[Rfam]
RNA sequence: GCAGCACCCCUUCCUCCGUCCACUCGGCCGCCACAUGGAAGCUGAGUGAGGGCCUCGGGGCGGCGC
Numbered sequence: 001g002c003a004g005c006a007c008c009c010c011u012u013c014c015u016c017c018g019u020c021c022a023c024u025c026g027g028c029c030g031c032c033a034c035a036u037g038g039a040a041g042c043u044g045a046g047u048g049a050g051g052g053c054c055u056c057g058g059g060g061c062g063g064c065g066c
Stems, first nucleotide, its partner, number of pairs: 001066002004064002008060004018053004023046006031038002
Dot-bracket structure: ((.((..((((......((((.((((((..((....))..))))))...))))...))))..))))
Record summary
Rfam assigns this 66-nucleotide sequence from Oryza meridionalis to the family "MIR2907 microRNA precursor family". A reference for the family is Jian et al. (2010), "Identification of novel stress-regulated microRNAs from Oryza sativa L", Genomics. The match comes from Rfam's covariance-model search (64 bits). Rfam 15.1 lists 136 matches to the family in 8 species.